[Rfam]
RNA sequence: GGAUUUAUGAUGAGCAGUGUUUACUGAGCAUGAUGAAAUGAGGCUCAAUGAUUACUCUGAAGUCU
Dot-bracket structure: (((((......(((.....((...(((((.............)))))..))...)))...)))))
Rfam assigns this 65-nucleotide sequence from Neotoma lepida to the family "Small Nucleolar RNA SNORD64". The match comes from Rfam's covariance-model search (80 bits). The family's RNA type in Rfam is C/D-box small nucleolar RNA. Rfam describes the family as follows. The human snoRNA HBII-13 belongs to the C/D family of snoRNAs. It is expressed mainly in the brain, but is also in the lungs, the kidneys and muscle. For this family Rfam cites "Identification of brain-specific and imprinted small nucleolar RNA genes exhibiting an unusual genomic organization" (Cavaille et al., Proc Natl Acad Sci U S A, 2000). Clan: SNORD74 clan.